[Rfam]
Rfam assigns this 258-nucleotide RNA sequence from Zestomonas carbonaria to the family "Pseudomonas sRNA P24". Rfam describes the family as follows. This small RNA (sRNA) was computationally identified in the genome of the opportunistic pathogen Pseudomonas aeruginosa and its expression verified by Northern blot analysis. P24 is conserved across several Pseudomonas species and in Azotobacter vinelandii. It appears to be consistently located between a hypothetical protein gene and a transcriptional regulator gene (AsnC family) in the genomes of all these species. P24 has a predicted Rho independent terminator at the 3' end but the function of P24 is unknown. The organism belongs to Zestomonas, within Bacteria.

RNA sequence: UUGCGCAAGCGGUAAACUGCUCAGCAAUCUUCGCAAUCCCCUGUCGCGCCUGGGGGAUUAAUAUUUCCCUCAGUUUCACGGCCCGGACAUCCCGUCCACCCGGCCCGCCCAAUCAGGCAGGUCGGCGCCGCCGGUCCUACAGGACCGCUCCGGCCCCCGGGUCCGCACCGCCCAACCAGGCGGGCGAGGAAAGCGGCGACACGAUUGCCGGUACAGGACGAAUACGCUGAAAGGGCGGCUCUCCAAGGAGGCCGCCCU
Numbered sequence: 001u002u003g004c005g006c007a008a009g010c011g012g013u014a015a016a017c018u019g020c021u022c023a024g025c026a027a028u029c030u031u032c033g034c035a036a037u038c039c040c041c042u043g044u045c046g047c048g049c050c051u052g053g054g055g056g057a058u059u060a061a062u063a064u065u066u067c068c069c070u071c072a073g074u075u076u077c078a079c080g081g082c083c084c085g086g087a088c089a090u091c092c093c094g095u096c097c098a099c100c101c102g103g104c105c106c107g108c109c110c111a112a113u114c115a116g117g118c119a120g121g122u123c124g125g126c127g128c129c130g131c132c133g134g135u136c137c138u139a140c141a142g143g144a145c146c147g148c149u150c151c152g153g154c155c156c157c158c159g160g161g162u163c164c165g166c167a168c169c170g171c172c173c174a175a176c177c178a179g180g181c182g183g184g185c186g187a188g189g190a191a192a193g194c195g196g197c198g199a200c201a202c203g204a205u206u207g208c209c210g211g212u213a214c215a216g217g218a219c220g221a222a223u224a225c226g227c228u229g230a231a232a233g234g235g236c237g238g239c240u241c242u243c244c245a246a247g248g249a250g251g252c253c254g255c256c257c258u
Stems, first nucleotide, its partner, number of pairs: 001012004044056002076192001079189001081162004085097004100125005107118003127154004133146005164186003168183005193212001194210006232258004237253004